[Rfam]
The family of this 97-nucleotide part of an RNA from Methanolacinia petrolearia is "Archaeal large subunit ribosomal RNA". Pairs were carried over by alignment from the consensus structure, which is taken from published work. It is one of the family's seed sequences.

RNA sequence: GUUAUGGCGUGAAAGGAUCUUUGCAUCGAAAGAAUCAGUCGCGAGGCUGUAGUAUGGGAUGCAUUGCCAGCGUCAUAACUUACGUUUUGAAGAACGG
Dot-bracket structure: ((((((((((....((.....((((((...(....(((((....))))).....)..))))))...)).))))))))))...(((........))).